[Rfam]
RNA sequence: UGCCAGAAAACUGUGAUGUGACAUUUCCAAGCACAUAUCUGACUGCUUUUUGUGGAAACAUGAGUGAAACAUGAGUAUUUGAGUUUUCUAGAG
Numbered sequence: 001u002g003c004c005a006g007a008a009a010a011c012u013g014u015g016a017u018g019u020g021a022c023a024u025u026u027c028c029a030a031g032c033a034c035a036u037a038u039c040u041g042a043c044u045g046c047u048u049u050u051u052g053u054g055g056a057a058a059c060a061u062g063a064g065u066g067a068a069a070c071a072u073g074a075g076u077a078u079u080u081g082a083g084u085u086u087u088c089u090a091g092a093g
Base pairs, nucleotide, nucleotide: 001093003091005089006088008086009085010084011083

Small nucleolar RNA SNORD121A: a 93-nucleotide RNA from Cairina moschata. Its family is annotated with nucleolus and RNA processing in the Gene Ontology. For this family Rfam cites "snoSeeker: an advanced computational package for screening of guide and orphan snoRNA genes in the human genome" (Yang et al., Nucleic Acids Res, 2006). Lineage of the source: Eukaryota > Opisthokonta > Sauria > Archosauria > Cairina. The family's RNA type in Rfam is C/D-box small nucleolar RNA. It scores 52 bits against the family's covariance model. The family has 26 seed sequences and 881 matches in Rfam 15.1. Pairs were carried over by alignment from the consensus structure, which was predicted with WAR.